[Rfam]
RNA sequence: GAGUUAAAACUCGAAAUCGGUUAAACUCGGUCAAACUCAUAAAAUCAGUUCGAUUUUAUUGAUUUUAACCGAGUUUGACCGAUUUCGAUCGAUUUCGAGUUUUAACUU
Numbered sequence: 001g002a003g004u005u006a007a008a009a010c011u012c013g014a015a016a017u018c019g020g021u022u023a024a025a026c027u028c029g030g031u032c033a034a035a036c037u038c039a040u041a042a043a044a045u046c047a048g049u050u051c052g053a054u055u056u057u058a059u060u061g062a063u064u065u066u067a068a069c070c071g072a073g074u075u076u077g078a079c080c081g082a083u084u085u086c087g088a089u090c091g092a093u094u095u096c097g098a099g100u101u102u103u104a105a106c107u108u
Stems, first nucleotide, its partner, number of pairs: 002107017020089003024085002027082012040068001041066007
RNA: MIR6440 microRNA precursor family
Organism: Populus deltoides